[Rfam]
RNA: Small nucleolar RNA Z105
RNA sequence: AAGGCACAAUGAGGAUUGUUUAUUGUCAUCUGAUUCAUUUUGAUGAAUCUAUACCUCCUACUCAUUCUGA
Numbered sequence: 001a002a003g004g005c006a007c008a009a010u011g012a013g014g015a016u017u018g019u020u021u022a023u024u025g026u027c028a029u030c031u032g033a034u035u036c037a038u039u040u041u042g043a044u045g046a047a048u049c050u051a052u053a054c055c056u057c058c059u060a061c062u063c064a065u066u067c068u069g070a
Base pairs, nucleotide, nucleotide: 006065009062026046027045030042